About this RNA:
The record is a 52-nucleotide sequence from Celeribacter halophilus, which matches "ffh sRNA" in Rfam. The organism belongs to Celeribacter, within Bacteria. Rfam classes the family as a small RNA. The match comes from Rfam's covariance-model search (55 bits). On this family, see Meyer et al., BMC Genomics 2009: "Identification of candidate structured RNAs in the marine organism 'Candidatus Pelagibacter ubique'".

RNA sequence: AAAUGCCAGGAUCGCCCCCCGUCAGCGUUAUACGCCCACGGGGGCCAAGGUG
Numbered sequence: 001a002a003a004u005g006c007c008a009g010g011a012u013c014g015c016c017c018c019c020c021g022u023c024a025g026c027g028u029u030a031u032a033c034g035c036c037c038a039c040g041g042g043g044g045c046c047a048a049g050g051u052g
Stems, first nucleotide, its partner, number of pairs: 016044007025035004